[Rfam]
RNA sequence: UCGGUUCCGGUUCACGUUCACGCCCGUGGGCGACCCGGCGACC
Numbered sequence: 001u002c003g004g005u006u007c008c009g010g011u012u013c014a015c016g017u018u019c020a021c022g023c024c025c026g027u028g029g030g031c032g033a034c035c036c037g038g039c040g041a042c043c
Base pairs, nucleotide, nucleotide: 003043004042005041007038008037009036010035015032016031017030018029019028020027021026
A member of the RNA family "L31-Actinobacteria ribosomal protein leader" from Nocardia farcinica, 43 nucleotides long. Pairs were carried over by alignment from the consensus structure, which is taken from published work. Rfam classes the family as a cis-regulatory leader. On this family, see Eckert and Weinberg, BMC Microbiol 2020: "Discovery of 20 novel ribosomal leader candidates in bacteria and archaea". Clan: Ribosomal Protein L31 Leader clan.